[Rfam]
RNA sequence: CAUCCAUCGAGACCGACUGAGGGACAGGCCCUUUGACGUCGGGGCAACCGGUGCAGUGAAUGCUGCACAAGGUGCCAAUUCCUGCGGUGAUCCGCCGGACCGAUGCAUG
Numbered sequence: 001c002a003u004c005c006a007u008c009g010a011g012a013c014c015g016a017c018u019g020a021g022g023g024a025c026a027g028g029c030c031c032u033u034u035g036a037c038g039u040c041g042g043g044g045c046a047a048c049c050g051g052u053g054c055a056g057u058g059a060a061u062g063c064u065g066c067a068c069a070a071g072g073u074g075c076c077a078a079u080u081c082c083u084g085c086g087g088u089g090a091u092c093c094g095c096c097g098g099a100c101c102g103a104u105g106c107a108u109g
Stems, first nucleotide, its partner, number of pairs: 001109003005105004013042005021031003025084004043076004048072002051068004085097005